The family of this 135-nucleotide RNA sequence from Ascobolus immersus is "U4 spliceosomal RNA".

RNA sequence: GUCUUGGUGCACGGGUAGGAAGUUUGCUAUGAGGAUUCGUCUGAGCACUCUUUUUUGCUAGUUGUGAACUUUAUGUUCGACCAGCUCCCUAUCGAUCUCGAUUGGUAGGGGAAUUUUUGGCAAACUUAACAAAGU
Numbered sequence: 001g002u003c004u005u006g007g008u009g010c011a012c013g014g015g016u017a018g019g020a021a022g023u024u025u026g027c028u029a030u031g032a033g034g035a036u037u038c039g040u041c042u043g044a045g046c047a048c049u050c051u052u053u054u055u056u057g058c059u060a061g062u063u064g065u066g067a068a069c070u071u072u073a074u075g076u077u078c079g080a081c082c083a084g085c086u087c088c089c090u091a092u093c094g095a096u097c098u099c100g101a102u103u104g105g106u107a108g109g110g111g112a113a114u115u116u117u118u119g120g121c122a123a124a125c126u127u128a129a130c131a132a133a134g135u
Stems, first nucleotide, its partner, number of pairs: 020052003025047003033042003086111011124135004